[Rfam]
RNA sequence: CACCGAGUAGGAAGGUUCCGGGGCCCACCGGAAUCUGGUGCGAAAGGGA
Numbered sequence: 001c002a003c004c005g006a007g008u009a010g011g012a013a014g015g016u017u018c019c020g021g022g023g024c025c026c027a028c029c030g031g032a033a034u035c036u037g038g039u040g041c042g043a044a045a046g047g048g049a
Stems, first nucleotide, its partner, number of pairs: 014035008

A member of the RNA family "raiA-hairpin RNA" from Streptomyces acidiscabies, 49 nucleotides long.
It is annotated as a small RNA.
The family's consensus secondary structure is taken from published work.